mir-2763 microRNA precursor family: an 83-nucleotide RNA sequence from Bombyx mori. Rfam 15.1 lists 59 matches to the family in 43 species. The family's consensus secondary structure was predicted with RNAalifold.
[Rfam]
RNA sequence: GGCAAUGUACUGCAAAGUAGUGAACAUAAUUUAUCGUGAGAUUUAUUAUUAGAUAUUAUGCUCAUUUCUUUGGAUAUGUUGUA
Numbered sequence: 001g002g003c004a005a006u007g008u009a010c011u012g013c014a015a016a017g018u019a020g021u022g023a024a025c026a027u028a029a030u031u032u033a034u035c036g037u038g039a040g041a042u043u044u045a046u047u048a049u050u051a052g053a054u055a056u057u058a059u060g061c062u063c064a065u066u067u068c069u070u071u072g073g074a075u076a077u078g079u080u081g082u083a
Stems, first nucleotide, its partner, number of pairs: 002082005008076002011074001013072005019066005025060005032055004038047002

Gene Ontology terms of the family: miRNA-mediated post-transcriptional gene silencing and RISC complex.